TPP riboswitch aptamer (THI element): a 97-nucleotide sequence from Wenyingzhuangia fucanilytica. Vitamin B(1) in its active form thiamin pyrophosphate (TPP) is an essential coenzyme that is synthesised by coupling of pyrimidine and thiazole moieties in bacteria. It scores 68 bits against the family's covariance model. Rfam 15.1 lists 16,130 matches to the family in 8,693 species.
[Rfam]
RNA sequence: GAUAAGCUUUAGGGGUGUCUUUUAUAAAAAAGGCUGAGAUUUACCCUUUGAACCUGAAUAAGUUAAGACUUACGUAGGGAAAAGUAAGGUCGCAGAC
Numbered sequence: 001g002a003u004a005a006g007c008u009u010u011a012g013g014g015g016u017g018u019c020u021u022u023u024a025u026a027a028a029a030a031a032g033g034c035u036g037a038g039a040u041u042u043a044c045c046c047u048u049u050g051a052a053c054c055u056g057a058a059u060a061a062g063u064u065a066a067g068a069c070u071u072a073c074g075u076a077g078g079g080a081a082a083a084g085u086a087a088g089g090u091c092g093c094a095g096a097c
Base pairs, nucleotide, nucleotide: 006085007084008083009082010081011047012046013045014044017034018033019032020031021030053078054077055076056075059072060071061070062069